[Rfam]
RNA sequence: GAGCUGUGAUGGUUUGUCUCGUUCGGUGUAUUGGCGAGUAACCAACAAAGCCAUGCCGACAAACACUAUAAAUCACCACUCACAAUCUGAGCUC
Numbered sequence: 001g002a003g004c005u006g007u008g009a010u011g012g013u014u015u016g017u018c019u020c021g022u023u024c025g026g027u028g029u030a031u032u033g034g035c036g037a038g039u040a041a042c043c044a045a046c047a048a049a050g051c052c053a054u055g056c057c058g059a060c061a062a063a064c065a066c067u068a069u070a071a072a073u074c075a076c077c078a079c080u081c082a083c084a085a086u087c088u089g090a091g092c093u094c
Stems, first nucleotide, its partner, number of pairs: 001094004036054001
RNA: Small nucleolar RNA Z43
Organism: Volvox reticuliferus